[Rfam]
RNA: Small nucleolar RNA SNORA5
RNA sequence: UGCAGUCAAGUCAAAUUCAGUCCCUGCCCUGUCAUGGUGGGAACUGGCCUAGAUGGCUGCCACAACAAGUUCUGCUGCUCAUGGGCCCCGGGUCUCCUGUCCUGGAACCUGGGGAUAAGUUUGGCUGCAGACACUA
Numbered sequence: 001u002g003c004a005g006u007c008a009a010g011u012c013a014a015a016u017u018c019a020g021u022c023c024c025u026g027c028c029c030u031g032u033c034a035u036g037g038u039g040g041g042a043a044c045u046g047g048c049c050u051a052g053a054u055g056g057c058u059g060c061c062a063c064a065a066c067a068a069g070u071u072c073u074g075c076u077g078c079u080c081a082u083g084g085g086c087c088c089c090g091g092g093u094c095u096c097c098u099g100u101c102c103u104g105g106a107a108c109c110u111g112g113g114g115a116u117a118a119g120u121u122u123g124g125c126u127g128c129a130g131a132c133a134c135u136a
Stems, first nucleotide, its partner, number of pairs: 002060004018046004023041006074128002077125003086114002089111003